RNA sequence: AGGCCCGGAGAGAGAGGCAGAGUCUGAUCCACAGCGUCUGUGGCAGCUGUUGAUCAGCUGUUGCCUCUCUUUCUCUGCG
Numbered sequence: 001a002g003g004c005c006c007g008g009a010g011a012g013a014g015a016g017g018c019a020g021a022g023u024c025u026g027a028u029c030c031a032c033a034g035c036g037u038c039u040g041u042g043g044c045a046g047c048u049g050u051u052g053a054u055c056a057g058c059u060g061u062u063g064c065c066u067c068u069c070u071u072u073c074u075c076u077g078c079g
Base pairs, nucleotide, nucleotide: 008073009072010071011070012069013068014067015066016065017064018063019062020061022059024057025056026055027054028053029052032049033048034047035046
Rfam assigns this 79-nucleotide sequence from Myotis myotis to the family "mir-574 microRNA precursor family". Rfam links the family to the GO terms RISC complex and miRNA-mediated post-transcriptional gene silencing. The literature on the family includes a 2010 paper in Anim Genet by Nielsen et al., "MicroRNA identity and abundance in porcine skeletal muscles determined by deep sequencing". NCBI's taxonomy places the organism under Eukaryota, Bilateria, Dipnotetrapodomorpha, Theria, Myotis. Rfam 15.1 lists 4,084 matches to the family in 7 species.